[Rfam]
RNA sequence: UCGAAUCCUCGUUAGGCGAGGCUUCUAUGCGGAAACACGCCACUGCCCGGAAACGUCGAGAGACGCCAAUGGGUUGAACAGGUAUUGCCGGACUAAGGCUUUACUUAAUGUGGCUGAGUGAAAACUCUACGACGCAUAGUGCUAAAGCUCAACAAGGGGGAUGCGC
Numbered sequence: 001u002c003g004a005a006u007c008c009u010c011g012u013u014a015g016g017c018g019a020g021g022c023u024u025c026u027a028u029g030c031g032g033a034a035a036c037a038c039g040c041c042a043c044u045g046c047c048c049g050g051a052a053a054c055g056u057c058g059a060g061a062g063a064c065g066c067c068a069a070u071g072g073g074u075u076g077a078a079c080a081g082g083u084a085u086u087g088c089c090g091g092a093c094u095a096a097g098g099c100u101u102u103a104c105u106u107a108a109u110g111u112g113g114c115u116g117a118g119u120g121a122a123a124a125c126u127c128u129a130c131g132a133c134g135c136a137u138a139g140u141g142c143u144a145a146a147g148c149u150c151a152a153c154a155a156g157g158g159g160g161a162u163g164c165g166c
Base pairs, nucleotide, nucleotide: 005162006161007160008159009158010157011153012152013096015149016148017147020143021142022141025139026138027137028136029135030134031133039114040113041112042111043110045074046073047072048071049070054065055064056063057062081105082104083103084102087099088098089097116127117126118125
M-box riboswitch aptamer (ykoK leader): a 166-nucleotide sequence from Ferroacidibacillus organovorans. Rfam's curators write: M-box riboswitch, also know as ykoK leader is described as a metaloregulatory RNA that sense divalent metals and function as a genetic control element of genes related to divalent metal transport in bacteria. It was first reported upstream of the B.subtilis ykoK gene and genes with related functions in other bacteria. The family has 159 seed sequences and 1,095 matches in Rfam 15.1.